[Rfam]
RNA sequence: CGAGCCCGGGCGGGAGAGACCUCCGGCGACGACCGGGGGCGCCGAAGGAGCAACCACUCCCUGGAAACUCUCAGGCACCACCAACCGUUCGGGCGAG
Numbered sequence: 001c002g003a004g005c006c007c008g009g010g011c012g013g014g015a016g017a018g019a020c021c022u023c024c025g026g027c028g029a030c031g032a033c034c035g036g037g038g039g040c041g042c043c044g045a046a047g048g049a050g051c052a053a054c055c056a057c058u059c060c061c062u063g064g065a066a067a068c069u070c071u072c073a074g075g076c077a078c079c080a081c082c083a084a085c086c087g088u089u090c091g092g093g094c095g096a097g
Base pairs, nucleotide, nucleotide: 006092007091008090009089010088011087012086013085020039021038022037023036024035025034026033041076042075043074044072045071048070049069050068054064055063